[Rfam]
RNA sequence: UUGUAUCAGGAUCGCCCCCCGUCAGCGAGGUUUCGCCCACGGGGGUCAUGGUG
Number, nucleotide and partner (000 for none) at each position: 001u000002u000003g000004u000005a000006u000007c000008a000009g000010g000011a000012u000013c000014g000015c000016c045017c044018c043019c042020c041021g040022u039023c000024a000025g036026c035027g034028a033029g000030g000031u000032u000033u028034c027035g026036c025037c000038c000039a022040c021041g020042g019043g018044g017045g016046u000047c000048a000049u000050g000051g000052u000053g000
Description
A member of the RNA family "ffh sRNA" from Roseicyclus mahoneyensis, 53 nucleotides long. The match comes from Rfam's covariance-model search (57 bits). The family's consensus secondary structure is taken from published work. The literature on the family includes a 2009 paper in BMC Genomics by Meyer et al., "Identification of candidate structured RNAs in the marine organism 'Candidatus Pelagibacter ubique'". Taxonomically the source falls in Roseicyclus (Bacteria, Pseudomonadati, Alphaproteobacteria, Roseobacteraceae).